[Rfam]
RNA: Clostridiales-1 RNA
RNA sequence: UAUAAUAAGUCCAUCAAUAGAUAUAAUGCAAGGCUGCUUGCAGACGGAGCGAUAUAUCUAUUAGAUGGGCAAACAGGCAUGAGCAAAAAGGGUGAUAACCCGAUUUGCGAAUGUAUGUUGUGAUUUCGAGAGUUCGCAGAACGGAGAAAUCACAUUUAUUAUA
Numbered sequence: 001u002a003u004a005a006u007a008a009g010u011c012c013a014u015c016a017a018u019a020g021a022u023a024u025a026a027u028g029c030a031a032g033g034c035u036g037c038u039u040g041c042a043g044a045c046g047g048a049g050c051g052a053u054a055u056a057u058c059u060a061u062u063a064g065a066u067g068g069g070c071a072a073a074c075a076g077g078c079a080u081g082a083g084c085a086a087a088a089a090g091g092g093u094g095a096u097a098a099c100c101c102g103a104u105u106u107g108c109g110a111a112u113g114u115a116u117g118u119u120g121u122g123a124u125u126u127c128g129a130g131a132g133u134u135c136g137c138a139g140a141a142c143g144g145a146g147a148a149a150u151c152a153c154a155u156u157u158a159u160u161a162u163a
Stems, first nucleotide, its partner, number of pairs: 001163007010069004016062010027051003032045001034043003073118003077114004083108004090101004121152007132142004